[Rfam]
The family of this 318-nucleotide sequence from Anhinga anhinga is "Small Cajal body-specific RNA 7". A search with the family's covariance model found it, with a score of 178 bits. Rfam 15.1 lists 570 matches to the family in 531 species. Pairs were carried over by alignment from the consensus structure. The organism belongs to Anhinga, within Eukaryota.

Nucleotides: 318
Base pairs, nucleotide, nucleotide: 001317002316003315004314184216185215186214187213188212189211192203193202194201195200
Number, partner (000 for none) and nucleotide at each position: 001317u002316g003315g004314a005000a006000g007000u008000g009000a010000u011000g012000a013000a014000a015000u016000a017000g018000a019000g020000a021000u022000a023000a024000u025000u026000g027000g028000a029000u030000g031000u032000c033000u034000c035000u036000u037000u038000g039000a040000a041000u042000g043000g044000a045000g046000u047000g048000u049000g050000u051000g052000u053000g054000a055000u056000a057000a058000a059000u060000a061000g062000a063000a064000u065000u066000u067000a068000a069000a070000c071000c072000a073000a074000g075000u076000c077000a078000g079000a080000c081000u082000g083000g084000g085000g086000g087000u088000g089000g090000g091000g092000u093000g094000c095000a096000g097000g098000g099000a100000a101000u102000g103000u104000g105000u106000g107000u108000g109000u110000g111000c112000g113000c114000g115000c116000a117000u118000g119000u120000a121000u122000a123000g124000a125000a126000a127000a128000g129000g130000c131000u132000u133000u134000a135000a136000a137000u138000g139000g140000g141000g142000g143000c144000a145000c146000u147000g148000a149000u150000a151000a152000u153000g154000c155000a156000g157000u158000g159000c160000u161000g162000a163000u164000u165000c166000c167000g168000g169000a170000g171000u172000g173000c174000a175000u176000c177000u178000g179000a180000g181000g182000c183000a184216u185215g186214u187213u188212g189211u190000u191000a192203c193202a194201u195200u196000c197000u198000g199000g200195g201194g202193u203192g204000c205000c206000a207000c208000u209000u210000u211189a212188c213187a214186a215185c216184a217000u218000u219000g220000c221000c222000g223000a224000u225000g226000a227000u228000u229000a230000a231000a232000g233000c234000c235000c236000a237000a238000a239000a240000c241000a242000a243000g244000c245000c246000c247000a248000c249000c250000a251000a252000g253000a254000c255000a256000a257000g258000c259000c260000u261000a262000g263000g264000c265000a266000u267000c268000c269000u270000a271000a272000a273000u274000c275000u276000c277000u278000a279000a280000c281000a282000g283000g284000u285000u286000c287000a288000c289000u290000a291000a292000u293000g294000a295000a296000a297000g298000u299000g300000a301000u302000c303000c304000u305000g306000u307000g308000a309000u310000c311000u312000g313000a314004u315003c316002c317001g318000a